[Rfam]
RNA sequence: UUACUGAGAGCGGGAUUGAACCCGCAAAUUUACCAAUUAUGAGUUGGGCGCUUUAACCAUUCAGCCAUCGU
Numbered sequence: 001u002u003a004c005u006g007a008g009a010g011c012g013g014g015a016u017u018g019a020a021c022c023c024g025c026a027a028a029u030u031u032a033c034c035a036a037u038u039a040u041g042a043g044u045u046g047g048g049c050g051c052u053u054u055a056a057c058c059a060u061u062c063a064g065c066c067a068u069c070g071u
Stems, first nucleotide, its partner, number of pairs: 006071001008069001010025005039068003043065006050058001

Shown here is a 71-nucleotide RNA from Aegilops tauschii, a member of the family "Plastid-ycf2 5UTR RNA". The match comes from Rfam's covariance-model search (67 bits). Plastid ycf2 is a non-coding RNA (ncRNA) recognised in plastids. It was found in the prime untranslated region (5UTR) of ycf2 genes, it presents a tRNA-like motif which suggests it can be involved in mRNA maturation, particularly involved in defining the precise 5' end of the transcript. On this family, see Richter et al., Plant Commun 2023: "Retrograde signaling in plants: A critical review focusing on the GUN pathway and beyond". The family has 204 seed sequences and 3,521 matches in Rfam 15.1.